RNA sequence: UCACCGUGCCUUUCAGGCAUCCUCUCCUAGAAGACUACAGGGUCGCUUAUGCGGCCCUUUUUUUUGUCCACG
Numbered sequence: 001u002c003a004c005c006g007u008g009c010c011u012u013u014c015a016g017g018c019a020u021c022c023u024c025u026c027c028u029a030g031a032a033g034a035c036u037a038c039a040g041g042g043u044c045g046c047u048u049a050u051g052c053g054g055c056c057c058u059u060u061u062u063u064u065u066g067u068c069c070a071c072g
Stems, first nucleotide, its partner, number of pairs: 008018004040057007
Dot-bracket structure: .......((((...)))).....................(((((((....)))))))...............